RNA sequence: CUGCGGUAUCGUGUUGAAUGCGAUGCCGCAGUUAUAGCCAGAAUCACAGCCCACAAAGCUGUGGUUCUAAUUUGAAAUAUUAUGACGACCAGCAGGGGCAUCUGGGCCGGAGCCCGGACUAUCUGCGGGAUCCGUGGUGGCUUUACCGAGGUCGCUGCAUCAAGACUUCGAAAGCCCACACGGUUUCUACGCCGGUGGUGUCCCCUAACCGAGGGUGACCA
Numbered sequence: 001c002u003g004c005g006g007u008a009u010c011g012u013g014u015u016g017a018a019u020g021c022g023a024u025g026c027c028g029c030a031g032u033u034a035u036a037g038c039c040a041g042a043a044u045c046a047c048a049g050c051c052c053a054c055a056a057a058g059c060u061g062u063g064g065u066u067c068u069a070a071u072u073u074g075a076a077a078u079a080u081u082a083u084g085a086c087g088a089c090c091a092g093c094a095g096g097g098g099c100a101u102c103u104g105g106g107c108c109g110g111a112g113c114c115c116g117g118a119c120u121a122u123c124u125g126c127g128g129g130a131u132c133c134g135u136g137g138u139g140g141c142u143u144u145a146c147c148g149a150g151g152u153c154g155c156u157g158c159a160u161c162a163a164g165a166c167u168u169c170g171a172a173a174g175c176c177c178a179c180a181c182g183g184u185u186u187c188u189a190c191g192c193c194g195g196u197g198g199u200g201u202c203c204c205c206u207a208a209c210c211g212a213g214g215g216u217g218a219c220c221a
Base pairs, nucleotide, nucleotide: 001031002030003029004028005027006026007025008024009023010022011021012020013019041067042066043065044064045063046062049059050058094206095205096204097203098202099200100199101118102117103116104115105114106113119198120197121196122195123194125192126191127190129187130186132183133182137179138178139177140176141174142173143172146170150167151166152165153164
sucA-II RNA: a 221-nucleotide RNA sequence from Pseudomonas sp. M30-35. The organism belongs to Pseudomonas, within Bacteria. It is annotated as a cis-regulatory element.